[Rfam]
RNA sequence: ACAGUGCCAUGGCCGUCUCGCAUAACGGCUAACUAACUGAUGAAAAGGCGCAGAGAUCUGCGCCUUUUUU
Numbered sequence: 001a002c003a004g005u006g007c008c009a010u011g012g013c014c015g016u017c018u019c020g021c022a023u024a025a026c027g028g029c030u031a032a033c034u035a036a037c038u039g040a041u042g043a044a045a046a047g048g049c050g051c052a053g054a055g056a057u058c059u060g061c062g063c064c065u066u067u068u069u070u
Stems, first nucleotide, its partner, number of pairs: 003018002006013002043068011

The family of this 70-nucleotide RNA from Kosakonia cowanii is "Salmonella enterica sRNA STnc40". The match comes from Rfam's covariance-model search (72 bits). It is annotated as a small RNA. The organism belongs to Kosakonia cowanii, within Bacteria.